[Rfam]
A member of the RNA family "Cyano-2 RNA", 204 nucleotides long. It is annotated as a small RNA.
RNA sequence: GACGGCCUCAGUAGAGCGAUCUGAGAGCUGGCAGAACCCCUGUCUCCUGCGUGUGCGAUCGCGGGGGACACCGUUUUGUGCAACGGAAUCCUGAAAAGACUUGGUGCGUUCGCCGAGAAGUUCAGUAGCGCAGCGAAUUUGGUUGUACCUACGGUCGCAUCGCUCGGGAAGGACAGCGUUCUUCUCGCGGCCUCAGUAGCCCCC
Numbered sequence: 001g002a003c004g005g006c007c008u009c010a011g012u013a014g015a016g017c018g019a020u021c022u023g024a025g026a027g028c029u030g031g032c033a034g035a036a037c038c039c040c041u042g043u044c045u046c047c048u049g050c051g052u053g054u055g056c057g058a059u060c061g062c063g064g065g066g067g068a069c070a071c072c073g074u075u076u077u078g079u080g081c082a083a084c085g086g087a088a089u090c091c092u093g094a095a096a097a098g099a100c101u102u103g104g105u106g107c108g109u110u111c112g113c114c115g116a117g118a119a120g121u122u123c124a125g126u127a128g129c130g131c132a133g134c135g136a137a138u139u140u141g142g143u144u145g146u147a148c149c150u151a152c153g154g155u156c157g158c159a160u161c162g163c164u165c166g167g168g169a170a171g172g173a174c175a176g177c178g179u180u181c182u183u184c185u186c187g188c189g190g191c192c193u194c195a196g197u198a199g200c201c202c203c204c
Base pairs, nucleotide, nucleotide: 003030004029005028006027007025008024009023010022011021031079032078033077034076035075036074037073041070042069043068044067045066046065047064048063049062050061051060147197148196151193154191155190156189157188158187166186167185168184169183170182171181172180173179